[Rfam]
The record is a 122-nucleotide sequence from Rouxiella badensis, which matches "TPP riboswitch aptamer (THI element)" in Rfam. It scores 67 bits against the family's covariance model. The source organism's lineage runs through Bacteria, Pseudomonadati, Pseudomonadota, Gammaproteobacteria and Rouxiella. Its family is annotated with thiamine pyrophosphate binding in the Gene Ontology.
RNA sequence: GCGUUCUCAACGGGGUGCUGAUUCACGCUUUUCGCUACGGCGAAGCGGGGAAGAGGCUGAGAAAAAACCCGUCGAACCUGAUCCGGUUAAUACCGGCGAAGGGAUUUGAGAGUGCAUCCCGC
Numbered sequence: 001g002c003g004u005u006c007u008c009a010a011c012g013g014g015g016u017g018c019u020g021a022u023u024c025a026c027g028c029u030u031u032u033c034g035c036u037a038c039g040g041c042g043a044a045g046c047g048g049g050g051a052a053g054a055g056g057c058u059g060a061g062a063a064a065a066a067a068c069c070c071g072u073c074g075a076a077c078c079u080g081a082u083c084c085g086g087u088u089a090a091u092a093c094c095g096g097c098g099a100a101g102g103g104a105u106u107u108g109a110g111a112g113u114g115c116a117u118c119c120c121g122c
Stems, first nucleotide, its partner, number of pairs: 006110005011071004016065001017057003077102003083096004